[Rfam]
About this RNA
A member of the RNA family "Selenocysteine transfer RNA" from Actinoallomurus bryophytorum, 92 nucleotides long. It scores 78 bits against the family's covariance model.
Nucleotides: 092
Base pairs, nucleotide, nucleotide: 001092002091003090004089005088006087007086009084012027013026015024016023017022030044031043032042033041048066049065050064051063052062069083070082071081072080
Number, partner (000 for none) and nucleotide at each position: 001092g002091g003090a004089g005088g006087c007086g008000a009084g010000a011000a012027g013026g014000u015024g016023c017022c018000u019000g020000g021000u022017g023016g024015c025000c026013c027012u028000c029000a030044c031043g032042g033041u034000c035000u036000u037000c038000a039000a040000a041033a042032c043031c044030g045000a046000u047000g048066g049065g050064a051063c052062c053000c054000u055000g056000a057000c058000g059000a060000a061000g062052g063051g064050u065049c066048c067000g068000g069083u070082g071081g072080g073000u074000u075000c076000g077000a078000u079000u080072c081071c082070c083069a084009u085000c086007c087006g088005c089004c090003u091002c092001c